Overview
The family of this 72-nucleotide RNA from Sedimentibacter sp. zth1 is "Fluoride riboswitch aptamer (crcB RNA motif)". It scores 40 bits against the family's covariance model. The family's consensus secondary structure is taken from published work. Lineage of the source: Bacteria > Bacillati > Bacillota > Tissierellia > Sedimentibacter.

RNA sequence: GUGUUUGAUGGGAAUGAAGUUCUCCCUUGGAAUAUCCAAAACUGCUUAACCGCUGAUGACUUCUGCAAUUAU
Numbered sequence: 001g002u003g004u005u006u007g008a009u010g011g012g013a014a015u016g017a018a019g020u021u022c023u024c025c026c027u028u029g030g031a032a033u034a035u036c037c038a039a040a041a042c043u044g045c046u047u048a049a050c051c052g053c054u055g056a057u058g059a060c061u062u063c064u065g066c067a068a069u070u071a072u
Stems, first nucleotide, its partner, number of pairs: 010026004016063006044053002